[Rfam]
RNA sequence: CGGUGAUGUCUCUUUACCGUUAUCAACAGAGGCACUCGGUCAUGCUGUGGGUUAACCAAACCUUAGACGUACAUCGUCAAGGGUGUGAUGUGAGGGGAGGUUAGAUGCCUC
Numbered sequence: 001c002g003g004u005g006a007u008g009u010c011u012c013u014u015u016a017c018c019g020u021u022a023u024c025a026a027c028a029g030a031g032g033c034a035c036u037c038g039g040u041c042a043u044g045c046u047g048u049g050g051g052u053u054a055a056c057c058a059a060a061c062c063u064u065a066g067a068c069g070u071a072c073a074u075c076g077u078c079a080a081g082g083g084u085g086u087g088a089u090g091u092g093a094g095g096g097g098a099g100g101u102u103a104g105a106u107g108c109c110u111c
Base pairs, nucleotide, nucleotide: 001019002018003017004016007034008033009032010031011030012029013028035094036093037092038091039089040088041087042086043085044084045083046082049063050062051061052060053059066078067077068076069075097111098110099109100108101107
RNA: epsC RNA
Organism: Paenibacillus validus